Source information:
Makes More Granules Regulator RNA (mmgR): a 74-nucleotide sequence from Sediminicoccus sp. KRV36.
[Rfam]
RNA sequence: CUUGCCUGCUUUCUUGGACGUUUCCUCCCUAAACUUGGCGGCGCAGCAAUGCGUCGCCACUUUUUUUGUCCAAA
Numbered sequence: 001c002u003u004g005c006c007u008g009c010u011u012u013c014u015u016g017g018a019c020g021u022u023u024c025c026u027c028c029c030u031a032a033a034c035u036u037g038g039c040g041g042c043g044c045a046g047c048a049a050u051g052c053g054u055c056g057c058c059a060c061u062u063u064u065u066u067u068g069u070c071c072a073a074a
Stems, first nucleotide, its partner, number of pairs: 004019001006017002037058008
The match comes from Rfam's covariance-model search (48 bits).
It is annotated as a small RNA.